[Rfam]
RNA: SAM-III riboswitch aptamer (SMK box)
Organism: Vagococcus salmoninarum
RNA sequence: GAAUGUUGCAAGUUCCCGAUAGGAUUCAGAAAAAACAUCAUUUUUUUUGAAAAUGCCUUGUAACCGAAAAGAUAGAGGGGGAAUAGUAGAAAUG
Numbered sequence: 001g002a003a004u005g006u007u008g009c010a011a012g013u014u015c016c017c018g019a020u021a022g023g024a025u026u027c028a029g030a031a032a033a034a035a036c037a038u039c040a041u042u043u044u045u046u047u048u049g050a051a052a053a054u055g056c057c058u059u060g061u062a063a064c065c066g067a068a069a070a071g072a073u074a075g076a077g078g079g080g081g082a083a084u085a086g087u088a089g090a091a092a093u094g
Base pairs, nucleotide, nucleotide: 013083014082015081016080017079021058022057023056025051026050027049028048029047030046031045032044033043034042064078065077